[Rfam]
RNA sequence: GUAUUGGAUAGGGGUUGCGCCACUGUGACCUAUAGUCAAUUGCUGAAGGAGGGCGACGUCAAGCGGUUGGACAAUGC
Dot-bracket structure: ((((((..((((................))))....((((((((.................))))))))..))))))
Shown here is a 77-nucleotide sequence from Gloeocapsa sp. PCC 7428, a member of the family "CyVA-1 RNA". About the family: Cyanobacteria, Acidobacteria (1 example), Verrucomicrobia (1 example). NCBI's taxonomy places the organism under Bacteria, Bacillati, Chroococcidiopsidales, Chroococcidiopsidaceae, Gloeocapsa.